[Rfam]
RNA sequence: AAGUCGGCAAAAUGGAUCCGUAACUUCGGCAGCAAUGUGAAAUGAUUCAAGAGCUGCUUGCUUCUUGCGGAUAAUAGUCGGUGUAGCCGACUAGUCCAUCCAGCCAAAGCAGUGCAAGCGGCUGGGGGCGAGACGACCUGGAACGAGGGAAGCCGAUGGGAGCAAUGCUCCUUGGGCCAAUCUCGUGGCGAGCUUUCGAAAGGGAGCCGUCGUAACGCACGGAAAGGCGUCGGCCCAGUGAAAGCACUGGGCUUAAGGAACGUGCUAGUCCCUGGGGCCAACCCAGCUGGCUGCUCGAGUGCUUGCACCACAAAUGCAGUCGGGAGCUUACGAGGCUGGAGAGGAAAUGCUCUAGCCCAUGCUCGGUGUAACGAACUUCGGGAAAAGGAUUGGCUCUGAGGGCUGGGCCUAGGGGUCUGCACUCUGAAACUCUCGGCUGUCGGUGGUCUACCCGAGCUUCGCGGCGAGGGCGGACCGCCGCGUGCCUUGAGCGGAAGGGCGUAGAAAGGCUUCGGCCGCUCCCUAGGCGACGAACAGCCAACUCAGAACUGGUACGGACAAG
Numbered sequence: 001a002a003g004u005c006g007g008c009a010a011a012a013u014g015g016a017u018c019c020g021u022a023a024c025u026u027c028g029g030c031a032g033c034a035a036u037g038u039g040a041a042a043u044g045a046u047u048c049a050a051g052a053g054c055u056g057c058u059u060g061c062u063u064c065u066u067g068c069g070g071a072u073a074a075u076a077g078u079c080g081g082u083g084u085a086g087c088c089g090a091c092u093a094g095u096c097c098a099u100c101c102a103g104c105c106a107a108a109g110c111a112g113u114g115c116a117a118g119c120g121g122c123u124g125g126g127g128g129c130g131a132g133a134c135g136a137c138c139u140g141g142a143a144c145g146a147g148g149g150a151a152g153c154c155g156a157u158g159g160g161a162g163c164a165a166u167g168c169u170c171c172u173u174g175g176g177c178c179a180a181u182c183u184c185g186u187g188g189c190g191a192g193c194u195u196u197c198g199a200a201a202g203g204g205a206g207c208c209g210u211c212g213u214a215a216c217g218c219a220c221g222g223a224a225a226g227g228c229g230u231c232g233g234c235c236c237a238g239u240g241a242a243a244g245c246a247c248u249g250g251g252c253u254u255a256a257g258g259a260a261c262g263u264g265c266u267a268g269u270c271c272c273u274g275g276g277g278c279c280a281a282c283c284c285a286g287c288u289g290g291c292u293g294c295u296c297g298a299g300u301g302c303u304u305g306c307a308c309c310a311c312a313a314a315u316g317c318a319g320u321c322g323g324g325a326g327c328u329u330a331c332g333a334g335g336c337u338g339g340a341g342a343g344g345a346a347a348u349g350c351u352c353u354a355g356c357c358c359a360u361g362c363u364c365g366g367u368g369u370a371a372c373g374a375a376c377u378u379c380g381g382g383a384a385a386a387g388g389a390u391u392g393g394c395u396c397u398g399a400g401g402g403c404u405g406g407g408c409c410u411a412g413g414g415g416u417c418u419g420c421a422c423u424c425u426g427a428a429a430c431u432c433u434c435g436g437c438u439g440u441c442g443g444u445g446g447u448c449u450a451c452c453c454g455a456g457c458u459u460c461g462c463g464g465c466g467a468g469g470g471c472g473g474a475c476c477g478c479c480g481c482g483u484g485c486c487u488u489g490a491g492c493g494g495a496a497g498g499g500c501g502u503a504g505a506a507a508g509g510c511u512u513c514g515g516c517c518g519c520u521c522c523c524u525a526g527g528c529g530a531c532g533a534a535c536a537g538c539c540a541a542c543u544c545a546g547a548a549c550u551g552g553u554a555c556g557g558a559c560a561a562g
Base pairs, nucleotide, nucleotide: 015391016390017389018388019387024381392550393549395547396546397545398544399543400542401539402538403537404536405535407528408527409526410525411524412523413522414521415520416505417504418503420501422499423498430491431490432489435486436485437484441480442479443478444477445476446475447474448473449472451470452469453468456465457464458463551555

Eukaryotic large subunit ribosomal RNA: a 562-nucleotide part of an RNA from Chlorella variabilis.